[Rfam]
RNA sequence: AUUGCUGUCUUACCAGGCAAGGUUAGAUCUGCCUACUCCUGUCUAAUACUGUCUGGUAAUGCCGUCAAU
Numbered sequence: 001a002u003u004g005c006u007g008u009c010u011u012a013c014c015a016g017g018c019a020a021g022g023u024u025a026g027a028u029c030u031g032c033c034u035a036c037u038c039c040u041g042u043c044u045a046a047u048a049c050u051g052u053c054u055g056g057u058a059a060u061g062c063c064g065u066c067a068a069u
Stems, first nucleotide, its partner, number of pairs: 002068003006064002009061001010059010022047006
Source information: The record is a 69-nucleotide RNA sequence from Vireo altiloquus, which matches "mir-8/mir-141/mir-200 microRNA precursor family" in Rfam. The family's consensus secondary structure was predicted with RNAalifold. On this family, see Lagos-Quintana et al., Science 2001: "Identification of novel genes coding for small expressed RNAs". The match comes from Rfam's covariance-model search (59 bits). The source organism's lineage runs through Eukaryota, Archosauria, Australaves, Corvoidea and Vireo. Its Rfam clan is "mir-8 microRNA precursor clan".